Shown here is a 102-nucleotide RNA from Alteribacter lacisalsi, a member of the family "Purine riboswitch aptamer". The organism belongs to Alteribacter, within Bacteria. The match comes from Rfam's covariance-model search (80 bits).

RNA sequence: CAGGUCAUUCAUAACAAAACUCGUAUAAGGGUGAGGAUAUGGCUCACAAGUCUCUACCAGACAACCGUAAAUUGUCUGACUACGGGUGAUAGGCAGAAUUGC
Numbered sequence: 001c002a003g004g005u006c007a008u009u010c011a012u013a014a015c016a017a018a019a020c021u022c023g024u025a026u027a028a029g030g031g032u033g034a035g036g037a038u039a040u041g042g043c044u045c046a047c048a049a050g051u052c053u054c055u056a057c058c059a060g061a062c063a064a065c066c067g068u069a070a071a072u073u074g075u076c077u078g079a080c081u082a083c084g085g086g087u088g089a090u091a092g093g094c095a096g097a098a099u100u101g102c
Base pairs, nucleotide, nucleotide: 019087020086021085022084023083024082025081031047032046033045034044035043058078059077060076061075062074063073064072